This 360-nucleotide RNA from Tuber borchii belongs to the Rfam family "RNase MRP".
Rfam classes the family as a ribozyme.
RNase MRP is an enzymatically active ribonucleoprotein with two distinct roles in eukaryotes. In mitochondria it plays a direct role in the initiation of mitochondrial DNA replication. In the nucleus it is involved in precursor rRNA processing, where it cleaves the internal transcribed spacer 1 between 18S and 5.8S rRNAs.
The organism belongs to Tuber, within Eukaryota.
RNA sequence: CCACCUCCCAAAGACUCGCUCACAAAGCUCACAAACAGAGACUUCAUUCAUGUUCGUCUCGAGAUACUACACUUUCGCAAGCUUUGGGUAAAGUCCCCGGACUGAAAAUAGCGGAAACGCGGGAAUAUCUUAUUCCUUUUUUCAAGAACCUUCCUUAUCCCUUUGACGGUCUUUUUCCAAACCUCACCCUCACUUGGGCGAAGAUAUGAGCCUUGGGUGGGGAGAGGGGGAGAUUGUUGGAGGGGUUUUUUCUUGGGAGAUUCUUACAAAAUCGUCGAAUUGGAUAGUUAUGCGAGUGCCCGUUUGAGAUCUUUUUUGGUUUCUGACGGGUACCAGAAUGGGGCUCAUUCUUGGGGGGUG
Numbered sequence: 001c002c003a004c005c006u007c008c009c010a011a012a013g014a015c016u017c018g019c020u021c022a023c024a025a026a027g028c029u030c031a032c033a034a035a036c037a038g039a040g041a042c043u044u045c046a047u048u049c050a051u052g053u054u055c056g057u058c059u060c061g062a063g064a065u066a067c068u069a070c071a072c073u074u075u076c077g078c079a080a081g082c083u084u085u086g087g088g089u090a091a092a093g094u095c096c097c098c099g100g101a102c103u104g105a106a107a108a109u110a111g112c113g114g115a116a117a118c119g120c121g122g123g124a125a126u127a128u129c130u131u132a133u134u135c136c137u138u139u140u141u142u143c144a145a146g147a148a149c150c151u152u153c154c155u156u157a158u159c160c161c162u163u164u165g166a167c168g169g170u171c172u173u174u175u176u177c178c179a180a181a182c183c184u185c186a187c188c189c190u191c192a193c194u195u196g197g198g199c200g201a202a203g204a205u206a207u208g209a210g211c212c213u214u215g216g217g218u219g220g221g222g223a224g225a226g227g228g229g230g231a232g233a234u235u236g237u238u239g240g241a242g243g244g245g246u247u248u249u250u251u252c253u254u255g256g257g258a259g260a261u262u263c264u265u266a267c268a269a270a271a272u273c274g275u276c277g278a279a280u281u282g283g284a285u286a287g288u289u290a291u292g293c294g295a296g297u298g299c300c301c302g303u304u305u306g307a308g309a310u311c312u313u314u315u316u317u318g319g320u321u322u323c324u325g326a327c328g329g330g331u332a333c334c335a336g337a338a339u340g341g342g343g344c345u346c347a348u349u350c351u352u353g354g355g356g357g358g359u360g
Base pairs, nucleotide, nucleotide: 002360003359004358005357006356007355008354009353010352011351014297015296016295017294018293019292023086024085025084026083027082028081038060039059040058041057042056092345093344095343096342097341098340111120112119113118122136123135124134125133126132127131138269139268145264146263147262148261150259154257155256156255157254158245159244160243161242231235299330300329301328302327303326304325